[Rfam]
RNA sequence: CUGCCGGUGUGUGUCCGGUCGGGGUAGCUGUCAGGAGGCCCGGUAGCAGGCUGGCGGCUCGGUCUGGAACGGGUCGGGUCGAAGCCCAGCGUCAAAAGGCCCGUUGGGGGAAGCGACUGAGCGGUCCGUAGCGGAA
Numbered sequence: 001c002u003g004c005c006g007g008u009g010u011g012u013g014u015c016c017g018g019u020c021g022g023g024g025u026a027g028c029u030g031u032c033a034g035g036a037g038g039c040c041c042g043g044u045a046g047c048a049g050g051c052u053g054g055c056g057g058c059u060c061g062g063u064c065u066g067g068a069a070c071g072g073g074u075c076g077g078g079u080c081g082a083a084g085c086c087c088a089g090c091g092u093c094a095a096a097a098g099g100c101c102c103g104u105u106g107g108g109g110g111a112a113g114c115g116a117c118u119g120a121g122c123g124g125u126c127c128g129u130a131g132c133g134g135a136a
Base pairs, nucleotide, nucleotide: 020043022041023040024039050090051089052088053087054086055081056080057079058078059077060076064072100110101109102108113129114128115127
Group II catalytic intron D1-D4-4: a 136-nucleotide RNA sequence from Amycolatopsis alkalitolerans. The base pairs follow the family's consensus structure. Its family is annotated with Group II intron splicing in the Gene Ontology. The organism belongs to Amycolatopsis, within Bacteria. A reference for the family is Chu et al. (2001), "Control of branch-site choice by a group II intron", EMBO J. Rfam 15.1 lists 840 matches to the family in 506 species.